[Rfam]
Description
Rfam assigns this 86-nucleotide RNA from Paramuricea clavata to the family "Selenocysteine transfer RNA". The base pairs follow the family's consensus structure, which is taken from published work.
RNA sequence: GCUUGAAUGAGCCUCACUGGUGUGGGGUGCAGGCUUCAAACCUGUAGCCGACUAGCGUCGGAGCGGUUCAAUUCCGCCUUUCGAGC
Numbered sequence: 001g002c003u004u005g006a007a008u009g010a011g012c013c014u015c016a017c018u019g020g021u022g023u024g025g026g027g028u029g030c031a032g033g034c035u036u037c038a039a040a041c042c043u044g045u046a047g048c049c050g051a052c053u054a055g056c057g058u059c060g061g062a063g064c065g066g067u068u069c070a071a072u073u074c075c076g077c078c079u080u081u082c083g084a085g086c
Stems, first nucleotide, its partner, number of pairs: 001086007009078001012027006028046006048061005063077004